[Rfam]
RNA: FMN riboswitch aptamer (RFN element)
RNA sequence: AACGCGCUCCGGGGUCGGUGAAAGUCCGAGCCGGCGGUCAUAGUCCGCGACCCGGCGCCGCGCAUCCACCAGGAUGCGCGGGGUCGGUUGAGCCGGUGAAAUUCCGGCACCGACGGUGAAAGUCCGGAUGGGAGGAGCGCGCG
Dot-bracket structure: ..((((((((.....(((.......))).[[((((((.....[[))))...(((((..........................)))))....(((((.......)))))]])).(((.....]]))).......))))))))..